[Rfam]
RNA sequence: GGGCUUCUGCUCUGUACGUGAACGGGAUAAUUCCAGUGGCCUUAAGCAACUCCGAGGGAGCUGGCUCUGUCCGGGCCCUGGUCCGGUUAUCUGGCGCCCACCUGUAUAUACAGGUCCUCGGGAAUUCUUACCCCCACGGCUGCAGCGGUUCCCGC
Numbered sequence: 001g002g003g004c005u006u007c008u009g010c011u012c013u014g015u016a017c018g019u020g021a022a023c024g025g026g027a028u029a030a031u032u033c034c035a036g037u038g039g040c041c042u043u044a045a046g047c048a049a050c051u052c053c054g055a056g057g058g059a060g061c062u063g064g065c066u067c068u069g070u071c072c073g074g075g076c077c078c079u080g081g082u083c084c085g086g087u088u089a090u091c092u093g094g095c096g097c098c099c100a101c102c103u104g105u106a107u108a109u110a111c112a113g114g115u116c117c118u119c120g121g122g123a124a125u126u127c128u129u130a131c132c133c134c135c136a137c138g139g140c141u142g143c144a145g146c147g148g149u150u151c152c153c154g155c
Stems, first nucleotide, its partner, number of pairs: 002153002007148005012142001014140002017138003031123004036118001038116004056099003060095005069088001071086006